RNA sequence: AAUAGUAGCAAAUAUUUAAAUGAGAACUUUGAAGGCCGAAGAGAGGAAAGGUUCUAUGUGAACGACACUUGCAUAUGGUUUAGUCGACCCUAAGAGACGGGGAAACCCAUUUGAUAGCGCGACAGCACGAACUUUGAAUGGGAAUCAAGUUAAAAUUCCUAAACUAGGACAUGACGGUUGACGACAGUGUAAGGGAUUCCAAAGACGUCGGUGAGGGCUUUGAGAAGAGUUAUCUUUUCUGUUUGACAGUCUGCCCACCAUGGAAACGGCUCAGCCGGAGGUAGGGUUCAGUGGCUAGAAGUGCACUGCACGUUGUAUGGUGUUCAGUGCGCCCCCUACGACCCUCAAAAAUUUAGACGAGUACAUCUCACGCCCAAUCGUACUAUAACUGCAUCAGGCCUUCAAGGUGAACAGCCCCUAGUCAA
Numbered sequence: 001a002a003u004a005g006u007a008g009c010a011a012a013u014a015u016u017u018a019a020a021u022g023a024g025a026a027c028u029u030u031g032a033a034g035g036c037c038g039a040a041g042a043g044a045g046g047a048a049a050g051g052u053u054c055u056a057u058g059u060g061a062a063c064g065a066c067a068c069u070u071g072c073a074u075a076u077g078g079u080u081u082a083g084u085c086g087a088c089c090c091u092a093a094g095a096g097a098c099g100g101g102g103a104a105a106c107c108c109a110u111u112u113g114a115u116a117g118c119g120c121g122a123c124a125g126c127a128c129g130a131a132c133u134u135u136g137a138a139u140g141g142g143a144a145u146c147a148a149g150u151u152a153a154a155a156u157u158c159c160u161a162a163a164c165u166a167g168g169a170c171a172u173g174a175c176g177g178u179u180g181a182c183g184a185c186a187g188u189g190u191a192a193g194g195g196a197u198u199c200c201a202a203a204g205a206c207g208u209c210g211g212u213g214a215g216g217g218c219u220u221u222g223a224g225a226a227g228a229g230u231u232a233u234c235u236u237u238u239c240u241g242u243u244u245g246a247c248a249g250u251c252u253g254c255c256c257a258c259c260a261u262g263g264a265a266a267c268g269g270c271u272c273a274g275c276c277g278g279a280g281g282u283a284g285g286g287u288u289c290a291g292u293g294g295c296u297a298g299a300a301g302u303g304c305a306c307u308g309c310a311c312g313u314u315g316u317a318u319g320g321u322g323u324u325c326a327g328u329g330c331g332c333c334c335c336c337u338a339c340g341a342c343c344c345u346c347a348a349a350a351a352u353u354u355a356g357a358c359g360a361g362u363a364c365a366u367c368u369c370a371c372g373c374c375c376a377a378u379c380g381u382a383c384u385a386u387a388a389c390u391g392c393a394u395c396a397g398g399c400c401u402u403c404a405a406g407g408u409g410a411a412c413a414g415c416c417c418c419u420a421g422u423c424a425a
Base pairs, nucleotide, nucleotide: 015033016032017031018030019029020028034423035422036421043403044402045401046400049384050383054078055077056076057075058074059073063071064070085380086379087378089141090140094135095134096111097110100108101107119126120125145162147160149158165376167374168373170372172370173369174368181190182189183188198357199356201354202353203352207342208341209340210339213336215334216333217332218331220327221326222325223243224242226240227239228238248296249295250294251293257287258286259285261283262282267277268276269275304322305321306320307319308318310316389398390397406416407415408414
A member of the RNA family "Eukaryotic large subunit ribosomal RNA" from Cucumis melo, 425 nucleotides of a longer RNA. NCBI's taxonomy places the organism under Eukaryota, Spermatophyta, Mesangiospermae, rosids, Cucumis melo subsp. agrestis. Its Rfam clan is "LSU clan". The family's consensus secondary structure is taken from published work.